Shown here is a 78-nucleotide RNA from Electrophorus electricus, a member of the family "mir-92 microRNA precursor family". Gene Ontology terms of the family: RISC complex and miRNA-mediated post-transcriptional gene silencing. The family is grouped with related families in Rfam's "mir-92 microRNA precursor clan". Taxonomically the source falls in Electrophorus (Eukaryota, Craniata, Osteoglossocephalai, Characiphysae). This family represents the microRNA precursor mir-92. Human miR-92 has two predicted hairpin precursor sequences: mir-92-1 on chromosome 13 and mir-92-2 on chromosome X. miR-92 has also been cloned from mouse embryonic stem cells. The mature sequence is excised from the 3' arm of the hairpin. The match comes from Rfam's covariance-model search (77 bits).

[Rfam]
RNA sequence: CUUCCUACGCAGGUUGGGAUUGGUGGCAAUGUUCUGUGCUGGUGGAGUAUUGCACUUGUCCCGGCCUGUCGAGGACGU
Numbered sequence: 001c002u003u004c005c006u007a008c009g010c011a012g013g014u015u016g017g018g019a020u021u022g023g024u025g026g027c028a029a030u031g032u033u034c035u036g037u038g039c040u041g042g043u044g045g046a047g048u049a050u051u052g053c054a055c056u057u058g059u060c061c062c063g064g065c066c067u068g069u070c071g072a073g074g075a076c077g078u
Stems, first nucleotide, its partner, number of pairs: 004074003009069006016062005022056003026053009